This 414-nucleotide sequence from Lichenibacterium minor belongs to the Rfam family "Bacterial RNase P class A".
A search with the family's covariance model found it, with a score of 268 bits.
RNA sequence: CCAGCCGGCCGGACGGCCGCCGCGCGCGAGCGCGGAGGAAAGUCCGGGCUCCACGGAAACACGGUGCCGGAUAACGUCCGGCGGGGGUGACCCCAGGGAUAGCGCCACAGAAAGCAGACCGCCCGGCGGUGGGAGCGAUCCCCCCGUCCGGGUCAGGGUGAAAGGGUGCGGUAAGAGCGCACCGCGGAGGCGGCAACGUCGACGGCACGGCAAGCCCCACCGGGAGCAAGAUCGAAUAGGGGCGACGGGACGCGGUCCGGCGAAGCCGGGUCGUCGUCCAACCCGUUUCCGGGCUGUCGCCCGGGUUGAUCGCUCGAGGCGGCCGGCGACGGUCGUCCCAGAGGAAUGGUCGUCACGUGCGGCGGGUUCGCCCGUCGCGCCAUACAGAACCCGGCUUACAGGCCGGCUGGCACC
Numbered sequence: 001c002c003a004g005c006c007g008g009c010c011g012g013a014c015g016g017c018c019g020c021c022g023c024g025c026g027c028g029a030g031c032g033c034g035g036a037g038g039a040a041a042g043u044c045c046g047g048g049c050u051c052c053a054c055g056g057a058a059a060c061a062c063g064g065u066g067c068c069g070g071a072u073a074a075c076g077u078c079c080g081g082c083g084g085g086g087g088u089g090a091c092c093c094c095a096g097g098g099a100u101a102g103c104g105c106c107a108c109a110g111a112a113a114g115c116a117g118a119c120c121g122c123c124c125g126g127c128g129g130u131g132g133g134a135g136c137g138a139u140c141c142c143c144c145c146g147u148c149c150g151g152g153u154c155a156g157g158g159u160g161a162a163a164g165g166g167u168g169c170g171g172u173a174a175g176a177g178c179g180c181a182c183c184g185c186g187g188a189g190g191c192g193g194c195a196a197c198g199u200c201g202a203c204g205g206c207a208c209g210g211c212a213a214g215c216c217c218c219a220c221c222g223g224g225a226g227c228a229a230g231a232u233c234g235a236a237u238a239g240g241g242g243c244g245a246c247g248g249g250a251c252g253c254g255g256u257c258c259g260g261c262g263a264a265g266c267c268g269g270g271u272c273g274u275c276g277u278c279c280a281a282c283c284c285g286u287u288u289c290c291g292g293g294c295u296g297u298c299g300c301c302c303g304g305g306u307u308g309a310u311c312g313c314u315c316g317a318g319g320c321g322g323c324c325g326g327c328g329a330c331g332g333u334c335g336u337c338c339c340a341g342a343g344g345a346a347u348g349g350u351c352g353u354c355a356c357g358u359g360c361g362g363c364g365g366g367u368u369c370g371c372c373c374g375u376c377g378c379g380c381c382a383u384a385c386a387g388a389a390c391c392c393g394g395c396u397u398a399c400a401g402g403c404c405g406g407c408u409g410g411c412a413c414c
Stems, first nucleotide, its partner, number of pairs: 001410010011399001012354007020035006040397003044394005049226004058288002062222005067081005082096001083094004097217002102215002104211003119157002121153006129145001165183006184206001185204002189200004230311004240302006280295001282293003318337008

Annotation
The family's RNA type in Rfam is ribozyme.